Record summary: FMN riboswitch aptamer (RFN element): a 113-nucleotide sequence from Gemella sp. GL1.1. The organism belongs to Gemella, within Bacteria. A search with the family's covariance model found it, with a score of 117 bits. Pairs were carried over by alignment from the consensus structure, which is taken from published work.
RNA sequence: UAUUAUCUUCGGGGCAGGGCGUAAUUCCCUACCGGCAGUUAUAGUCUGCGAGCGAAUGCUGAUUUGGUGAAAUUCCAAAACCGACAGUAUAGUCUGGAUGGUAGAAGAUAGUG
Numbered sequence: 001u002a003u004u005a006u007c008u009u010c011g012g013g014g015c016a017g018g019g020c021g022u023a024a025u026u027c028c029c030u031a032c033c034g035g036c037a038g039u040u041a042u043a044g045u046c047u048g049c050g051a052g053c054g055a056a057u058g059c060u061g062a063u064u065u066g067g068u069g070a071a072a073u074u075c076c077a078a079a080a081c082c083g084a085c086a087g088u089a090u091a092g093u094c095u096g097g098a099u100g101g102u103a104g105a106a107g108a109u110a111g112u113g
Stems, first nucleotide, its partner, number of pairs: 003111008017029003031093002033083002035049004044081002052059002063079005085096003